[Rfam]
RNA sequence: GUCAGCACCCCGCUCUAAAGAGACGGGGCAUCAUGCUUCUCUUUUUAGGUAGCUAGUACCCGCCUAAGUCCCUUGAGGGCUACGUUAUCGGCAAGAGUUAACGUUCCGACCCGGAGAUGCGUGGCCAGUCUCCGGCUCUAGAACCACAGCAUUAAACAGUCCUACGAGGGGUAAGACAGUGUGUUGUGGAAAGUACCGACCGAUAACUUAUGCGAGGCAAACAUUAC
Numbered sequence: 001g002u003c004a005g006c007a008c009c010c011c012g013c014u015c016u017a018a019a020g021a022g023a024c025g026g027g028g029c030a031u032c033a034u035g036c037u038u039c040u041c042u043u044u045u046u047a048g049g050u051a052g053c054u055a056g057u058a059c060c061c062g063c064c065u066a067a068g069u070c071c072c073u074u075g076a077g078g079g080c081u082a083c084g085u086u087a088u089c090g091g092c093a094a095g096a097g098u099u100a101a102c103g104u105u106c107c108g109a110c111c112c113g114g115a116g117a118u119g120c121g122u123g124g125c126c127a128g129u130c131u132c133c134g135g136c137u138c139u140a141g142a143a144c145c146a147c148a149g150c151a152u153u154a155a156a157c158a159g160u161c162c163u164a165c166g167a168g169g170g171g172u173a174a175g176a177c178a179g180u181g182u183g184u185u186g187u188g189g190a191a192a193g194u195a196c197c198g199a200c201c202g203a204u205a206a207c208u209u210a211u212g213c214g215a216g217g218c219a220a221a222c223a224u225u226a227c
Stems, first nucleotide, its partner, number of pairs: 001059002004054003007050001009028002011025002014021002062213002065210002067081005084207006097200003105142002111135008122219002125217002144189009156180002159177002162175002164172002

Annotation: A member of the RNA family "HNH endonuclease-associated RNA and ORF (HEARO) RNA" from Lyngbya sp. PCC 8106, 227 nucleotides long. A reference for the family is Weinberg et al. (2009), "Exceptional structured noncoding RNAs revealed by bacterial metagenome analysis", Nature. Rfam's curators put it in the seed alignment.